[Rfam]
RNA: c-di-AMP riboswitch aptamer (ydaO/yuaA leader)
RNA sequence: GACGCGUAAGCGCCGUAGGCAGGAGCGGGGGAACCAAGGUAGGCCGCCGGAUCCGUACGGGACCGGCUUGGGGUGAAGUCGUGCGAGCCGCGCGACCGGGCAACUCAUCAGCCCGAACCCGACAGCUCACCUCGUAGGCGUCGGUGAGGAGAUUC
Numbered sequence: 001g002a003c004g005c006g007u008a009a010g011c012g013c014c015g016u017a018g019g020c021a022g023g024a025g026c027g028g029g030g031g032a033a034c035c036a037a038g039g040u041a042g043g044c045c046g047c048c049g050g051a052u053c054c055g056u057a058c059g060g061g062a063c064c065g066g067c068u069u070g071g072g073g074u075g076a077a078g079u080c081g082u083g084c085g086a087g088c089c090g091c092g093c094g095a096c097c098g099g100g101c102a103a104c105u106c107a108u109c110a111g112c113c114c115g116a117a118c119c120c121g122a123c124a125g126c127u128c129a130c131c132u133c134g135u136a137g138g139c140g141u142c143g144g145u146g147a148g149g150a151g152a153u154u155c
Stems, first nucleotide, its partner, number of pairs: 011140004025135006035070004071120003079095004098114004